[Rfam]
RNA sequence: GGAUGUGAGGGCAACCUGGCUGUGACAUCUGUCACUCCCUUGAUCAUCAGGGUUGAUUUGGCUGAUCUGGCUAGCUAGGCAGGUGUCCCCUUUCUCCCUCACUGCUCCAGGUGUGUUCCUUCUGAAGCUGCAUGCUCAGUUGAAGAGGAUUACCUUCCCCAAGAGAGGAGGACCAUUCUUUGGUCAAGCACAUACUAGUAGAUGUGCUUCCCUGCUAGAACCUCUAAACUAGUUCUCAGGGUCCAUUUGUAGGAGAACAUAGGGUAGUCAAGCUCUCAAGACUCCAGACACAUCCAAAUGAGGCACUGCAUGUGACAGUCUGCCCCUUUCU
Dot-bracket structure: (((.(((((((.((...((....((((((((((.((((...((((.((...........))..)))).))..))...)))))))))).)).))..)))))))...))).......((((((((((.((.....))))))(((....(((......))).)))..)))).)).............................(.(...((.(((((.......((((..((.((.............)).)).))))....))))).))...).)......................(.(.(.(((((((.......))))..))).)..).)
RNA: 7SK RNA
Organism: Equus caballus